[Rfam]
The record is a 96-nucleotide RNA from Neglectibacter sp. 59, which matches "RT-17 RNA" in Rfam. The match comes from Rfam's covariance-model search (44 bits). By type it is a small RNA. Taxonomically the source falls in Neglectibacter (Bacteria, Bacillati, Clostridia, Eubacteriales).
RNA sequence: UACCCGGCCACUUGGCAGAACACAAAAAUUAUUUCACCUGUAUCAGUAGACUUGAAAAUUAACUUUCAAGGUUGACCAUUCGGGUUCAAAAAACAU
Numbered sequence: 001u002a003c004c005c006g007g008c009c010a011c012u013u014g015g016c017a018g019a020a021c022a023c024a025a026a027a028a029u030u031a032u033u034u035c036a037c038c039u040g041u042a043u044c045a046g047u048a049g050a051c052u053u054g055a056a057a058a059u060u061a062a063c064u065u066u067c068a069a070g071g072u073u074g075a076c077c078a079u080u081c082g083g084g085u086u087c088a089a090a091a092a093a094c095a096u
Stems, first nucleotide, its partner, number of pairs: 007016003042079002049073001052069006